[Rfam]
RNA sequence: UAAUACUUCAUUGGGGAGUAGCCGCUAUUUACGCAAAGUAAAUAGGUGAUGAUCAACAUAAUUGUUCAACAGAACAUGGUCAUCAUAGCAAAGAACAAUGUCGCUUUCUUUUAAGCAACCUUUUGUUGGCAAGACCUUUGAUU
Numbered sequence: 001u002a003a004u005a006c007u008u009c010a011u012u013g014g015g016g017a018g019u020a021g022c023c024g025c026u027a028u029u030u031a032c033g034c035a036a037a038g039u040a041a042a043u044a045g046g047u048g049a050u051g052a053u054c055a056a057c058a059u060a061a062u063u064g065u066u067c068a069a070c071a072g073a074a075c076a077u078g079g080u081c082a083u084c085a086u087a088g089c090a091a092a093g094a095a096c097a098a099u100g101u102c103g104c105u106u107u108c109u110u111u112u113a114a115g116c117a118a119c120c121u122u123u124u125g126u127u128g129g130c131a132a133g134a135c136c137u138u139u140g141a142u143u
Stems, first nucleotide, its partner, number of pairs: 026044003046086010063076005087142001089140005
This 143-nucleotide RNA from Acinetobacter rudis belongs to the Rfam family "Manganese Mn2+ riboswitch aptamer (yybP-ykoY)". Rfam's curators write: This RNA was originally discovered in E. coli during a large scale screen and was named SraF. The family was later found to exist upstream of related families of protein genes in many bacteria, including the the yybP and ykoK genes in B. subtilis. The specific functions of these proteins are unknown, but this structured RNA element may be involved in their genetic regulation as a riboswitch. Its family is annotated with manganese ion binding in the Gene Ontology. The pairing is the family consensus, mapped onto this sequence.